[Rfam]
Source information:
The family of this 97-nucleotide RNA from Asparagus officinalis is "Plastid-rps12 3UTR RNA". The source organism's lineage runs through Eukaryota, Euphyllophyta, Spermatophyta, Magnoliopsida and Asparagus. A search with the family's covariance model found it, with a score of 86 bits. From the family's description: Plastid rpl20 is a non-coding RNA (ncRNA) recognised in plastids. It was found in the three prime untranslated region (3UTR) of rps12 gene, its 3UTR location sugest a role in transcript maduration. The family's consensus secondary structure was predicted with LocARNA. The literature on the family includes a 2023 paper in Plant Commun by Richter et al., "Retrograde signaling in plants: A critical review focusing on the GUN pathway and beyond".

RNA sequence: GGUUUCUAUUGGUGCAAAUCCAAUCAUCUCAAUAUAAGAUGAGAAGCAAUUUCUCAUAGAUAGCAACUAGUUAUUCUAUGAAGCGGAGGAAUAGUAU
Numbered sequence: 001g002g003u004u005u006c007u008a009u010u011g012g013u014g015c016a017a018a019u020c021c022a023a024u025c026a027u028c029u030c031a032a033u034a035u036a037a038g039a040u041g042a043g044a045a046g047c048a049a050u051u052u053c054u055c056a057u058a059g060a061u062a063g064c065a066a067c068u069a070g071u072u073a074u075u076c077u078a079u080g081a082a083g084c085g086g087a088g089g090a091a092u093a094g095u096a097u
Base pairs, nucleotide, nucleotide: 009023010022011021012020054086055085056079057078059076060074061073062072063071064070